Nucleotides: 102
Base pairs, nucleotide, nucleotide: 020086021085022084023083024082025081030048031047032046033045034044035043058078059077060076061075062074063073064072
Number, partner (000 for none) and nucleotide at each position: 001000a002000g003000u004000c005000g006000u007000u008000u009000c010000a011000c012000c013000u014000a015000g016000c017000a018000a019000u020086c021085u022084c023083g024082u025081a026000u027000a028000a029000g030048u031047c032046c033045g034044g035043g036000a037000a038000u039000a040000u041000g042000g043035c044034c045033c046032g047031g048030a049000a050000g051000u052000u053000u054000c055000u056000a057000c058078c059077c060076g061075a062074g063073a064072a065000c066000c067000u068000c069000a070000a071000a072064u073063u074062u075061u076060c077059g078058g079000a080000c081025u082024a083023c084022g085021a086020g087000c088000c089000u090000a091000a092000a093000c094000a095000c096000g097000u098000a099000a100000g101000a102000a